[Rfam]
About this RNA
Shown here is a 64-nucleotide RNA sequence from Cebus imitator, a member of the family "U7 small nuclear RNA". From the family's description: Animal histone pre-mRNAs are spliced by a different mechanism than nuclear pre-mRNAs and self-splicing introns. This processing involves the U7 snRNP, which contains only one RNA species: U7. The 5' end of U7 RNA is thought to base-pair to a conserved spacer element downstream of the cleavage site in histone pre-mRNA. This family contains a number of annotated U7 pseudogenes. It scores 58 bits against the family's covariance model. Lineage of the source: Eukaryota > Teleostomi > Dipnotetrapodomorpha > Boreoeutheria > Cebus. The base pairs follow the family's consensus structure, which was predicted with PFOLD.
RNA sequence: AAGUGUUAACAGCUCUUUUAGAAUUUGUCUAGCAGGUUUUCUGGUUUUCACCAAAAGUUCCCCC
Numbered sequence: 001a002a003g004u005g006u007u008a009a010c011a012g013c014u015c016u017u018u019u020a021g022a023a024u025u026u027g028u029c030u031a032g033c034a035g036g037u038u039u040u041c042u043g044g045u046u047u048u049c050a051c052c053a054a055a056a057g058u059u060c061c062c063c064c
Base pairs, nucleotide, nucleotide: 035061036060038057039056040055042053043052044051045050
Dot-bracket structure: ..................................((.(((.((((....)))).)))..))...